About this RNA:
The record is a 92-nucleotide sequence from Desulfitobacterium metallireducens, which matches "pan motif" in Rfam. Pairs were carried over by alignment from the consensus structure, which is taken from published work. It scores 53 bits against the family's covariance model.
RNA sequence: CAGACAAUAUCCCCAGUGGAGUUGUACUGGUAAAAUUCAUUCAUUUGAUGGUAUAGACUGCCGCUUGGAUCAAUUUCGACCGAGACGGUGAA
Dot-bracket structure: ((((((((.((.......))))))).)))...............................((((((((.((......))))))).)))....